A member of the RNA family "Plastid-rps12 3UTR RNA", 106 nucleotides long.
Plastid rpl20 is a non-coding RNA (ncRNA) recognised in plastids.
It is one of the family's seed sequences.
The family's RNA type in Rfam is cis-regulatory element.
On this family, see Richter et al., Plant Commun 2023: "Retrograde signaling in plants: A critical review focusing on the GUN pathway and beyond".
RNA sequence: GGUUUCUAUUGGUGAAAAUCCAAUCACCCCUAAUUUUCCAUUUUAGAUGAAAAAGAAUCCCCCAUUGGUAACAAAUGCUUAUCCAUUAAGCAGAGGAAAUCCUAUU
Numbered sequence: 001g002g003u004u005u006c007u008a009u010u011g012g013u014g015a016a017a018a019u020c021c022a023a024u025c026a027c028c029c030c031u032a033a034u035u036u037u038c039c040a041u042u043u044u045a046g047a048u049g050a051a052a053a054a055g056a057a058u059c060c061c062c063c064a065u066u067g068g069u070a071a072c073a074a075a076u077g078c079u080u081a082u083c084c085a086u087u088a089a090g091c092a093g094a095g096g097a098a099a100u101c102c103u104a105u106u
Stems, first nucleotide, its partner, number of pairs: 009023004060095001062093001064086002067083005